[Rfam]
Shown here is a 159-nucleotide sequence from Streptomyces sp. ISL-98, a member of the family "Streptomyces sRNA scr5239". By type it is a small RNA. The base pairs follow the family's consensus structure, which is taken from published work.
RNA sequence: CUUCCUCCCUCCCCGCACAGGAGGGCGGAACGAGGUACCGGUCGCUCUCUGCCCUGACUGCGCACCGGCGCCUCUGUCGGCCGCGCGGGACCGCACAUCCGCCGGCCGGAGCAGCUCCGGGCUGCGGUGCCGGCAGGGCUGAGGGUCCCUGCCAGGCGC
Numbered sequence: 001c002u003u004c005c006u007c008c009c010u011c012c013c014c015g016c017a018c019a020g021g022a023g024g025g026c027g028g029a030a031c032g033a034g035g036u037a038c039c040g041g042u043c044g045c046u047c048u049c050u051g052c053c054c055u056g057a058c059u060g061c062g063c064a065c066c067g068g069c070g071c072c073u074c075u076g077u078c079g080g081c082c083g084c085g086c087g088g089g090a091c092c093g094c095a096c097a098u099c100c101g102c103c104g105g106c107c108g109g110a111g112c113a114g115c116u117c118c119g120g121g122c123u124g125c126g127g128u129g130c131c132g133g134c135a136g137g138g139c140u141g142a143g144g145g146u147c148c149c150u151g152c153c154a155g156g157c158g159c
Stems, first nucleotide, its partner, number of pairs: 003029003008024005032074005038068004044061002046057002077109007087100003114128003118124002132153007